Guanidine-II riboswitch aptamer (mini-ykkC): a 48-nucleotide RNA sequence from Plesiomonas shigelloides.
About the family: Simpler in structure and has fewer highly conserved nucleotide positions than the ykkC-yxkD leader.

RNA sequence: GUCCCGGGACGACCCGGUAUGACUGCCUUUAGUAUGGGGACGACCCCG
Numbered sequence: 001g002u003c004c005c006g007g008g009a010c011g012a013c014c015c016g017g018u019a020u021g022a023c024u025g026c027c028u029u030u031a032g033u034a035u036g037g038g039g040a041c042g043a044c045c046c047c048g
Stems, first nucleotide, its partner, number of pairs: 001020002004017005035048005
NCBI's taxonomy places the organism under Bacteria, Pseudomonadati, Pseudomonadota, Gammaproteobacteria, Plesiomonas shigelloides.